A member of the RNA family "Saccharopolyspora sRNA 350" from Actinokineospora fastidiosa, 522 nucleotides long. Rfam classes the family as an antisense RNA. Gene Ontology term of the family: regulation of secondary metabolite biosynthetic process. Taxonomically the source falls in Actinokineospora (Bacteria, Bacillati, Actinomycetes, Pseudonocardiaceae).

[Rfam]
RNA sequence: UUGACCGUGUACUCCCACAUGCUCUGCGGGUCGGCCAGGGUCUCGUCGCCGAAGUGGUCGCCGUCGGCGAGCACGCCGAGGUCGGUCGGCUCGCCGUACUGGCUGGUGCCGAUCUUCUUCACCCGGCCGUGCACGAUGAGGAAGGCGUGGUCGGAGGGGUUGCCGAACUCGACGAUCACGUCGCCGGGCUGGUACUCGCGCUGCUCGAAGCGCUCGGCCAGCGCGGUGAGCACCUCGAUGUCGUCGAACCCGCGCAGCAGCGGCAGCUCGCACAGCUCCGGCGGCACGACCUGGGCGCGGUCGCCGAUGUUGGAGAAGGUGACCCGGCCGUCGCCGACGGCGUAGCUCAUCCUGCGGUUCACCCGGAAGGUGCCGCCCUUGGCCUCGAUCCACGGCAGCACGCGCAGCAGCCAGCGCGAGGUGAUCGCCUGCAUCUGCGGCACGGACUUGGUGGUCGUCGCCAGGUUCCGGGCCGCCGCAGUGCCCAGGGUUGAUGGAUACGGGUUGUCGGGGUCAAUCCGG
Numbered sequence: 001u002u003g004a005c006c007g008u009g010u011a012c013u014c015c016c017a018c019a020u021g022c023u024c025u026g027c028g029g030g031u032c033g034g035c036c037a038g039g040g041u042c043u044c045g046u047c048g049c050c051g052a053a054g055u056g057g058u059c060g061c062c063g064u065c066g067g068c069g070a071g072c073a074c075g076c077c078g079a080g081g082u083c084g085g086u087c088g089g090c091u092c093g094c095c096g097u098a099c100u101g102g103c104u105g106g107u108g109c110c111g112a113u114c115u116u117c118u119u120c121a122c123c124c125g126g127c128c129g130u131g132c133a134c135g136a137u138g139a140g141g142a143a144g145g146c147g148u149g150g151u152c153g154g155a156g157g158g159g160u161u162g163c164c165g166a167a168c169u170c171g172a173c174g175a176u177c178a179c180g181u182c183g184c185c186g187g188g189c190u191g192g193u194a195c196u197c198g199c200g201c202u203g204c205u206c207g208a209a210g211c212g213c214u215c216g217g218c219c220a221g222c223g224c225g226g227u228g229a230g231c232a233c234c235u236c237g238a239u240g241u242c243g244u245c246g247a248a249c250c251c252g253c254g255c256a257g258c259a260g261c262g263g264c265a266g267c268u269c270g271c272a273c274a275g276c277u278c279c280g281g282c283g284g285c286a287c288g289a290c291c292u293g294g295g296c297g298c299g300g301u302c303g304c305c306g307a308u309g310u311u312g313g314a315g316a317a318g319g320u321g322a323c324c325c326g327g328c329c330g331u332c333g334c335c336g337a338c339g340g341c342g343u344a345g346c347u348c349a350u351c352c353u354g355c356g357g358u359u360c361a362c363c364c365g366g367a368a369g370g371u372g373c374c375g376c377c378c379u380u381g382g383c384c385u386c387g388a389u390c391c392a393c394g395g396c397a398g399c400a401c402g403c404g405c406a407g408c409a410g411c412c413a414g415c416g417c418g419a420g421g422u423g424a425u426c427g428c429c430u431g432c433a434u435c436u437g438c439g440g441c442a443c444g445g446a447c448u449u450g451g452u453g454g455u456c457g458u459c460g461c462c463a464g465g466u467u468c469c470g471g472g473c474c475g476c477c478g479c480a481g482u483g484c485c486c487a488g489g490g491u492u493g494a495u496g497g498a499u500a501c502g503g504g505u506u507g508u509c510g511g512g513g514u515c516a517a518u519c520c521g522g
Stems, first nucleotide, its partner, number of pairs: 003390002006387002009384001013382002018327001021324001025321003031316002035313004040308003045305001047303002049300003054233002058229007065111004075103001077102001079100002083096004118221002122217002126213002130209001131206001134203002138199001140197001143196002154189001158185003161178002234295004240290005249283001251281001254278001256277003260271003329342004354376004360372004391431002394428001397425001399423003403418003407415001437476004443470004447465006477521002481515001484513003488509001